LOOT RNA: a 123-nucleotide RNA. It is one of the family's seed sequences. The family's RNA type in Rfam is small RNA.
RNA sequence: GGCCUAACCCCUCGCAAGAGGAUAUGGUCGUAAAACCCGCUAGAGAUCAAAGGACUCCCAGUCAGAGUCACUCUAGCGGGUCAUAUCUGGAAACAGGUAUGGGUUUGACCGAAAGGUUGAAUC
Numbered sequence: 001g002g003c004c005u006a007a008c009c010c011c012u013c014g015c016a017a018g019a020g021g022a023u024a025u026g027g028u029c030g031u032a033a034a035a036c037c038c039g040c041u042a043g044a045g046a047u048c049a050a051a052g053g054a055c056u057c058c059c060a061g062u063c064a065g066a067g068u069c070a071c072u073c074u075a076g077c078g079g080g081u082c083a084u085a086u087c088u089g090g091a092a093a094c095a096g097g098u099a100u101g102g103g104u105u106u107g108a109c110c111g112a113a114a115g116g117u118u119g120a121a122u123c
Stems, first nucleotide, its partner, number of pairs: 001029004010021004036080010053069004082101008102123009
Dot-bracket structure: ((((.....((((....))))....))))......((((((((((.......((((.........)))).)))))))))).((((((((....))))))))(((((((((....)))))))))